[Rfam]
RNA sequence: CUUUAACAAUCCGGAACAAGCUGAAAAUUGAAACGACAUGUCGUCUCAUUCCUCCGUAAUAAGGAAUGGGGUUAAGACAUGUUCGAGUCUCUCAAAUUUUCACAACAGCGAUUUUGUCUUACGAGACAUCUUCGG
Numbered sequence: 001c002u003u004u005a006a007c008a009a010u011c012c013g014g015a016a017c018a019a020g021c022u023g024a025a026a027a028u029u030g031a032a033a034c035g036a037c038a039u040g041u042c043g044u045c046u047c048a049u050u051c052c053u054c055c056g057u058a059a060u061a062a063g064g065a066a067u068g069g070g071g072u073u074a075a076g077a078c079a080u081g082u083u084c085g086a087g088u089c090u091c092u093c094a095a096a097u098u099u100u101c102a103c104a105a106c107a108g109c110g111a112u113u114u115u116g117u118c119u120u121a122c123g124a125g126a127c128a129u130c131u132u133c134g135g
Stems, first nucleotide, its partner, number of pairs: 020103001023101007034085003037081006109134003115128002
Shown here is a 135-nucleotide sequence from Cedecea neteri, a member of the family "Salmonella enterica Typhi npcRNA 44".
The family's consensus secondary structure was predicted with CMfinder.
For this family Rfam cites "Experimental identification and characterization of 97 novel npcRNA candidates in Salmonella enterica serovar Typhi" (Chinni et al., Nucleic Acids Res, 2010).
Rfam 15.1 lists 474 matches to the family in 137 species.
Lineage of the source: Bacteria > Pseudomonadati > Pseudomonadota > Enterobacteriaceae > Cedecea.